[Rfam]
RNA: FMN riboswitch aptamer (RFN element)
RNA sequence: GCCCGUUCUCAGGGCGGGGUGAAAUUCCCCACCGGCGGUGACAGCCCGCGAGCGCCCUUCCCAAGGAAGGGGUCUAGCAGAUCCGGUGGAAUCCCGGGGCCGACGGUGAAAGUCCGGAUGGAAGAGACGUAU
Numbered sequence: 001g002c003c004c005g006u007u008c009u010c011a012g013g014g015c016g017g018g019g020u021g022a023a024a025u026u027c028c029c030c031a032c033c034g035g036c037g038g039u040g041a042c043a044g045c046c047c048g049c050g051a052g053c054g055c056c057c058u059u060c061c062c063a064a065g066g067a068a069g070g071g072g073u074c075u076a077g078c079a080g081a082u083c084c085g086g087u088g089g090a091a092u093c094c095c096g097g098g099g100c101c102g103a104c105g106g107u108g109a110a111a112g113u114c115c116g117g118a119u120g121g122a123a124g125a126g127a128c129g130u131a132u
Base pairs, nucleotide, nucleotide: 004129005128006127008126009125010124017029018028019027031113032112033102034101035049036048037047038046044100045099052078053077082098083097084096085095086094104116105115106114